[Rfam]
RNA: Eukaryotic small subunit ribosomal RNA, nucleotides 2062 to 2228
Nucleotides: 167
Stems, first nucleotide, its partner, number of pairs: 003134001005131001008127002011124001014120004019115002023111001025110008034101003039096003045090001049086006056079004061074004136159010
Number, partner (000 for none) and nucleotide at each position: 001000c002000a003134c004000c005131g006000c007000c008127c009126g010000u011124c012000g013000c014120u015119a016118c017117u018000a019115c020114u021000a022000a023111u024000u025110a026109a027108a028107u029106a030105g031104c032103u033000u034101a035100g036099u037000a038000a039096g040095g041094c042000c043000u044000u045090c046000a047000g048000a049086c050085u051084g052083g053082c054081u055000c056079g057078g058077a059076g060000a061074g062073g063072u064071u065000g066000g067000c068000a069000a070000c071064a072063a073062c074061u075000a076059c077058u078057c079056c080000a081054a082053g083052c084051c085050a086049g087000a088000a089000a090045g091000u092000u093000u094041g095040u096039u097000a098000a099036a100035c101034u102000u103032g104031g105030u106029u107028a108027u109026u110025u111023a112000g113000a114020g115019g116000a117017a118016g119015u120014a121000a122000a123000a124011g125000u126009c127008g128000u129000a130000a131005u132000a133000a134003g135000g136159u137158u138157u139156c140155u141154g142153u143152a144151g145150g146000u147000g148000a149000a150145c151144c152143u153142g154141c155140a156139g157138a158137a159136g160000g161000a162000u163000u164000a165000u166000u167000a